[Rfam]
RNA sequence: GGUCAUGAGUACCAGCGCAUAGCCCCGGCUUGUUGGUCGGCAACCCUCCUACCGCGGUGGGGUGCUCCGGGUGAUGACCGGGCCCUCCGGUAAGCGAGAGGGCAAGUGCGUAUC
Numbered sequence: 001g002g003u004c005a006u007g008a009g010u011a012c013c014a015g016c017g018c019a020u021a022g023c024c025c026c027g028g029c030u031u032g033u034u035g036g037u038c039g040g041c042a043a044c045c046c047u048c049c050u051a052c053c054g055c056g057g058u059g060g061g062g063u064g065c066u067c068c069g070g071g072u073g074a075u076g077a078c079c080g081g082g083c084c085c086u087c088c089g090g091u092a093a094g095c096g097a098g099a100g101g102g103c104a105a106g107u108g109c110g111u112a113u114c
Stems, first nucleotide, its partner, number of pairs: 001079004009038001011037006021030002039066003044062003048057002082103006090095001
RNA: SAM (S-adenosyl methionine) riboswitch aptamer